[Rfam]
RNA sequence: CCAGUCCCCGGGCCGGCGUCGCCGCGAACCGGGGAACCACGAUCUCGGGGUGAAUCCGCGCCCGCGCGCGGUAGGGCCAUCUUCCCGCCCGAACCCGUCAGCUAACCCGGUAGGUGGCUAAGAAGCGGAAGA
Dot-bracket structure: (...((...................))((((((....(........)(((.....((((........))))..((((.........))))...))).........)))))).)...................
The record is a 132-nucleotide RNA from Actinoplanes cyaneus, which matches "c-di-AMP riboswitch aptamer (ydaO/yuaA leader)" in Rfam. The match comes from Rfam's covariance-model search (78 bits). Lineage of the source: Bacteria > Bacillati > Actinomycetota > Actinomycetes > Actinoplanes. Rfam's curators write: This family represents a conserved RNA structure found upstream of the ydaO and yuaA genes in Bacillus subtilis and related genes in other bacteria. The pairing is the family consensus, mapped onto this sequence.